[Rfam]
RNA sequence: CUCUUAUCAAGAGAGGCGGAGGGAUUAGGCCCUGUGAUGCCCAGCAACCGGCGAAAGCAAAGGUGCUACUUCCUACAAACUCUCAGCAGUUUGGAAGAUAAGGG
Numbered sequence: 001c002u003c004u005u006a007u008c009a010a011g012a013g014a015g016g017c018g019g020a021g022g023g024a025u026u027a028g029g030c031c032c033u034g035u036g037a038u039g040c041c042c043a044g045c046a047a048c049c050g051g052c053g054a055a056a057g058c059a060a061a062g063g064u065g066c067u068a069c070u071u072c073c074u075a076c077a078a079a080c081u082c083u084c085a086g087c088a089g090u091u092u093g094g095a096a097g098a099u100a101a102g103g104g
Stems, first nucleotide, its partner, number of pairs: 001104008013042001015041003021032003026075004043067004048063002051058002071096001076093006
RNA: SAM riboswitch aptamer (S box leader)